Rfam assigns this 71-nucleotide RNA sequence from Leptonychotes weddellii to the family "Small nucleolar RNA SNORD34".
[Rfam]
RNA sequence: UGGCGUCCGUGAUGUUGCAGUUGUACCUACAUUGUUUGACCCUCGUGAGAACAGCACUGUCUGAGACGCUG
Numbered sequence: 001u002g003g004c005g006u007c008c009g010u011g012a013u014g015u016u017g018c019a020g021u022u023g024u025a026c027c028u029a030c031a032u033u034g035u036u037u038g039a040c041c042c043u044c045g046u047g048a049g050a051a052c053a054g055c056a057c058u059g060u061c062u063g064a065g066a067c068g069c070u071g
Stems, first nucleotide, its partner, number of pairs: 001071002004068004
Notes:
From the family's description: snoRNA U34 is found in intron 5 of the ribosomal protein L13a gene in humans. Clan: SNORD34 clan. The family's consensus secondary structure was predicted with PFOLD. By type it is a C/D-box small nucleolar RNA. Taxonomically the source falls in Leptonychotes (Eukaryota, Opisthokonta, Amniota, Lobodontini).